The record is a 96-nucleotide sequence from Rathayibacter tritici, which matches "Glycine riboswitch aptamer" in Rfam. The pairing is the family consensus, mapped onto this sequence. Lineage of the source: Bacteria > Actinomycetota > Micrococcales > Microbacteriaceae > Rathayibacter. This family represents the bacterial glycine riboswitch. Glycine riboswitches usually consist of two metabolite-binding aptamers domains with similar structures in tandem. The aptamers cooperatively bind glycine to regulate the expression of downstream genes. In Bacillus subtilis, this riboswitch is found upstream of the gcvT operon which controls glycine degradation. A search with the family's covariance model found it, with a score of 52 bits.
RNA sequence: CCACUCUGGAAAGCGAUCCGCUUGGAUCCGCCGACGGUGAAAGCGAAGGACCCCUCCGGUCGGCGCGAAUCUCUCAGGCACCACGACAGAGGGGGA
Number, nucleotide and partner (000 for none) at each position: 001c094002c093003a000004c091005u090006c089007u088008g087009g000010a000011a000012a000013g000014c000015g028016a027017u026018c025019c000020g000021c000022u000023u000024g000025g018026a017027u016028c015029c000030g079031c078032c077033g075034a074035c000036g000037g073038u000039g071040a000041a000042a000043g066044c065045g000046a000047a000048g000049g000050a000051c000052c000053c000054c000055u000056c000057c000058g000059g000060u000061c000062g000063g000064c000065g044066c043067g000068a000069a000070u000071c039072u000073c037074u034075c033076a000077g032078g031079c030080a000081c000082c000083a000084c000085g000086a000087c008088a007089g006090a005091g004092g000093g002094g001095g000096a000